Rfam assigns this 60-nucleotide RNA sequence from Streptomyces coelicolor to the family "Actino-pnp RNA". Rfam's curators put it in the seed alignment. The family's consensus secondary structure is taken from published work. The organism belongs to Streptomyces, within Bacteria. It is annotated as a cis-regulatory element.
[Rfam]
RNA sequence: GCCGGUCCUCGGUAGUGGCCCCCGGGGGCAGAUCCCCGGGUGCUUCGAUCGAAGACCGGC
Numbered sequence: 001g002c003c004g005g006u007c008c009u010c011g012g013u014a015g016u017g018g019c020c021c022c023c024g025g026g027g028g029c030a031g032a033u034c035c036c037c038g039g040g041u042g043c044u045u046c047g048a049u050c051g052a053a054g055a056c057c058g059g060c
Base pairs, nucleotide, nucleotide: 001060002059003058004057005056006055007054009052010051011050012049013048017044018043019042021040022039023038024037025036026035027034028033